[Rfam]
RNA: Small nucleolar RNA SNORD18
Nucleotides: 070
Base pairs, nucleotide, nucleotide: 001070002069003068004067
Number, partner (000 for none) and nucleotide at each position: 001070u002069g003068c004067a005000c006000g007000u008000g009000a010000u011000g012000a013000a014000u015000g016000a017000c018000u019000u020000c021000a022000c023000a024000u025000u026000g027000g028000u029000c030000c031000g032000u033000g034000u035000u036000u037000c038000u039000g040000a041000u042000a043000u044000u045000u046000g047000u048000g049000a050000u051000g052000u053000u054000a055000a056000u057000g058000u059000g060000a061000u062000u063000c064000u065000g066000a067004u068003g069002u070001g